[Rfam]
RNA sequence: CGGAUUCAACGGCCGAGCCGCGCGCCCGAUGCGCGUGGGCGGGGGAACCACCGCGGUCGUCGAGACCGCCGGGGCGAAUCGCCGCAAGGCGUAGCGCAGCUCCUGGAGCGCGAGCCCGUCAGCUCACCCCGCAGGCCACCGACAGGAGGAAUG
Numbered sequence: 001c002g003g004a005u006u007c008a009a010c011g012g013c014c015g016a017g018c019c020g021c022g023c024g025c026c027c028g029a030u031g032c033g034c035g036u037g038g039g040c041g042g043g044g045g046a047a048c049c050a051c052c053g054c055g056g057u058c059g060u061c062g063a064g065a066c067c068g069c070c071g072g073g074g075c076g077a078a079u080c081g082c083c084g085c086a087a088g089g090c091g092u093a094g095c096g097c098a099g100c101u102c103c104u105g106g107a108g109c110g111c112g113a114g115c116c117c118g119u120c121a122g123c124u125c126a127c128c129c130c131g132c133a134g135g136c137c138a139c140c141g142a143c144a145g146g147a148g149g150a151a152u153g
Stems, first nucleotide, its partner, number of pairs: 011137004018038008039132006049071001072117003080091004094111004
Shown here is a 153-nucleotide sequence from Patulibacter medicamentivorans, a member of the family "c-di-AMP riboswitch aptamer (ydaO/yuaA leader)". Gene Ontology terms of the family: regulation of gene expression and cyclic-di-AMP binding. The organism belongs to Patulibacter, within Bacteria. The match comes from Rfam's covariance-model search (60 bits).